[Rfam]
RNA: mir-8364 microRNA precursor family
RNA sequence: UCUUCAUUCCCCGCACUCUCUCGUCUCUUUGACCUGUGAGAGAGUGCGCGAAAUGAAGAGA
Dot-bracket structure: (((((((..(.((((((.((((...............)))).)))))).)..)))))))..
Numbered sequence: 001u002c003u004u005c006a007u008u009c010c011c012c013g014c015a016c017u018c019u020c021u022c023g024u025c026u027c028u029u030u031g032a033c034c035u036g037u038g039a040g041a042g043a044g045u046g047c048g049c050g051a052a053a054u055g056a057a058g059a060g061a
Stems, first nucleotide, its partner, number of pairs: 001059007010050001012048006019041004